[Rfam]
RNA sequence: GUUGUCGGAUUCACACCAAUCCACGUGUGUUGAGGUGAAUUGAAGUGGAACUUGAACUAAAUUCCACUCCAAUCUACACCAACAUAUAUAGAUUGAAGUGAAUACGACA
Numbered sequence: 001g002u003u004g005u006c007g008g009a010u011u012c013a014c015a016c017c018a019a020u021c022c023a024c025g026u027g028u029g030u031u032g033a034g035g036u037g038a039a040u041u042g043a044a045g046u047g048g049a050a051c052u053u054g055a056a057c058u059a060a061a062u063u064c065c066a067c068u069c070c071a072a073u074c075u076a077c078a079c080c081a082a083c084a085u086a087u088a089u090a091g092a093u094u095g096a097a098g099u100g101a102a103u104a105c106g107a108c109a
Base pairs, nucleotide, nucleotide: 004108005107006106007105009103010102011101012100013099014098017095018094019093020092021091023089025087026086027085028084029083030082031081032080035077036076037075039073040072041071042070045067046066047065